[Rfam]
RNA sequence: UCCCUGCUUUUCCUCCCUGAGCAGGAGCCUUAACGUGAUGACAGCGAUAAGGCUUUCUCGGCCCCGGUCUCGACCGGGGCCUUUUUUAU
Numbered sequence: 001u002c003c004c005u006g007c008u009u010u011u012c013c014u015c016c017c018u019g020a021g022c023a024g025g026a027g028c029c030u031u032a033a034c035g036u037g038a039u040g041a042c043a044g045c046g047a048u049a050a051g052g053c054u055u056u057c058u059c060g061g062c063c064c065c066g067g068u069c070u071c072g073a074c075c076g077g078g079g080c081c082u083u084u085u086u087u088a089u
Stems, first nucleotide, its partner, number of pairs: 003025006027053006060080001062078003066074001
Shown here is an 89-nucleotide sequence from Pelomonas sp. Root1444, a member of the family "Burkholderia RNA 7 (anti-hemB)". Rfam links the family to the GO terms protein binding and bacterial biofilm matrix. Pairs were carried over by alignment from the consensus structure, which is taken from published work. About the family: This RNA motif was identified by computational search in b-proteobacteria Burkholderia. Co-purified with Hfq, expression confirmed by Northern blot. A reference for the family is Weinberg et al. (2007), "Identification of 22 candidate structured RNAs in bacteria using the CMfinder comparative genomics pipeline", Nucleic Acids Res. The family has 26 seed sequences and 479 matches in Rfam 15.1. Lineage of the source: Bacteria > Pseudomonadati > Betaproteobacteria > Sphaerotilaceae > Roseateles.